[Rfam]
RNA sequence: GUCGUUGCGAGGCGGGGUCUGGAGGAAGCCCAAUCCGAAGCUGCGGGGUGAUGAACAAAAACCGGAUAUGAGGCGUGAUGCAUCCGGGGCGAGCGGGCACGUGACCGCGAAGCCCUCCAUCUGCGAACGGGGUGCAUUUUGUAAAUCCGGCGUCUAUGCAGUGAAGGUAACGUGU
Dot-bracket structure: .(((((....)))))............((.(....(...(((((((((((...........((((((.....(((.(((((((...((((..((((........))))...))))................))))))).)))..))))))))))).))))))....)....).))